[Rfam]
RNA sequence: GAAGGCUUGCAAUUCUGGUGAAUGUCACAGACUUCAAAUCUGAUGUGUGGCUAAGUGUUUAGUCGCUGGGGAGUUCGAUUCUCUCGCCUUC
Numbered sequence: 001g002a003a004g005g006c007u008u009g010c011a012a013u014u015c016u017g018g019u020g021a022a023u024g025u026c027a028c029a030g031a032c033u034u035c036a037a038a039u040c041u042g043a044u045g046u047g048u049g050g051c052u053a054a055g056u057g058u059u060u061a062g063u064c065g066c067u068g069g070g071g072a073g074u075u076c077g078a079u080u081c082u083c084u085c086g087c088c089u090u091c
Base pairs, nucleotide, nucleotide: 001091002090003089004088005087006086009025010024011023013022014021015020026045028042029041030040031039047066048065049064050063051062070084071083072082073081
Dot-bracket structure: ((((((..(((.(((....))))))(.((((.......))))..).(((((..........)))))...((((.......)))).))))))